This 149-nucleotide RNA from Comamonas sp. BIGb0124 belongs to the Rfam family "ZMP/ZTP riboswitch aptamer (pfl RNA motif)".
RNA sequence: CGCCCCGCGCGCGACUGGCGAUAGACGGUCGGCACCCCUUGCGGUGCCGGGGCCGUCGAGGUGGAUCACCACCGGGGAGCGCGCAGCGUCGGGUCUGGCCUCGGUGAGGGCAGACCGGCGUGUAUCAGCCGUUCGCCUGGGCAGCCCUU
Numbered sequence: 001c002g003c004c005c006c007g008c009g010c011g012c013g014a015c016u017g018g019c020g021a022u023a024g025a026c027g028g029u030c031g032g033c034a035c036c037c038c039u040u041g042c043g044g045u046g047c048c049g050g051g052g053c054c055g056u057c058g059a060g061g062u063g064g065a066u067c068a069c070c071a072c073c074g075g076g077g078a079g080c081g082c083g084c085a086g087c088g089u090c091g092g093g094u095c096u097g098g099c100c101u102c103g104g105u106g107a108g109g110g111c112a113g114a115c116c117g118g119c120g121u122g123u124a125u126c127a128g129c130c131g132u133u134c135g136c137c138u139g140g141g142c143a144g145c146c147c148u149u
Stems, first nucleotide, its partner, number of pairs: 003088001005086001007084006015076002017137005061072004126144001128142003